[Rfam]
RNA sequence: CAAGUUCUCAUCAGCCAAAUUCUAAAUAAAAAAAGAAACUACACUCUCAUUCCUUUAUUUACAGCAAAACAAAGACCAACAUAUCCACACACCAAACUGUUUGAUUCACAUCACACCCAAAUACAAACGGUUUAAAAAAGAGGAUGCUUUCAAAAUUUCAAGGUAACAAAAAGAGGUGCAAAUGUAUAUAUUACUAAACUAGAGAAGCCUCCUCCUGAAGGUUCUGGUAGUUGAUUGAUAAGUACGAACGAGAAGACCGACACCAAUCCCAAGACAAACACAGACACCAAUCUCUUU
Numbered sequence: 001c002a003a004g005u006u007c008u009c010a011u012c013a014g015c016c017a018a019a020u021u022c023u024a025a026a027u028a029a030a031a032a033a034a035g036a037a038a039c040u041a042c043a044c045u046c047u048c049a050u051u052c053c054u055u056u057a058u059u060u061a062c063a064g065c066a067a068a069a070c071a072a073a074g075a076c077c078a079a080c081a082u083a084u085c086c087a088c089a090c091a092c093c094a095a096a097c098u099g100u101u102u103g104a105u106u107c108a109c110a111u112c113a114c115a116c117c118c119a120a121a122u123a124c125a126a127a128c129g130g131u132u133u134a135a136a137a138a139a140g141a142g143g144a145u146g147c148u149u150u151c152a153a154a155a156u157u158u159c160a161a162g163g164u165a166a167c168a169a170a171a172a173g174a175g176g177u178g179c180a181a182a183u184g185u186a187u188a189u190a191u192u193a194c195u196a197a198a199c200u201a202g203a204g205a206a207g208c209c210u211c212c213u214c215c216u217g218a219a220g221g222u223u224c225u226g227g228u229a230g231u232u233g234a235u236u237g238a239u240a241a242g243u244a245c246g247a248a249c250g251a252g253a254a255g256a257c258c259g260a261c262a263c264c265a266a267u268c269c270c271a272a273g274a275c276a277a278a279c280a281c282a283g284a285c286a287c288c289a290a291u292c293u294c295u296u297u
Stems, first nucleotide, its partner, number of pairs: 011218004023061008034047003094133010104122003140214005146208005158203002161200002176187004220288003223284004227279002230275003233268005242261002245259002249255001
Shown here is a 297-nucleotide RNA from Arabidopsis thaliana, a member of the family "TeloSII non coding RNA 33".
Located downstream of the TeloSII elements. These elements have been shown to coordinate the expression of protein-coding gene related to ribosome biogenesis throughout the cell cycle in Arabidopsis.
By type it is a small RNA.
On this family, see Qu et al., BMC Genomics 2015: "Promoter-based identification of novel non-coding RNAs reveals the presence of dicistronic snoRNA-miRNA genes in Arabidopsis thaliana".
The source organism's lineage runs through Eukaryota, Streptophyta, malvids, Camelineae and Arabidopsis.
It is one of the family's seed sequences.